[Rfam]
RNA sequence: GUGGUACUCAAACUAUGGGGGCAAUUUUUGAGCUGGAAUGAAGUGCUGCCAAGUUUUGAGCGCUGC
Numbered sequence: 001g002u003g004g005u006a007c008u009c010a011a012a013c014u015a016u017g018g019g020g021g022c023a024a025u026u027u028u029u030g031a032g033c034u035g036g037a038a039u040g041a042a043g044u045g046c047u048g049c050c051a052a053g054u055u056u057u058g059a060g061c062g063c064u065g066c
Base pairs, nucleotide, nucleotide: 004063005062007060008059009058010057011056012055016051017050018049020047021046022045023044025042027041028040
The family of this 66-nucleotide sequence from Cricetulus griseus is "mir-290 microRNA precursor family".
Its Rfam clan is "mir-290 clan".
Taxonomically the source falls in Cricetulus (Eukaryota, Sarcopterygii, Theria, Cricetidae).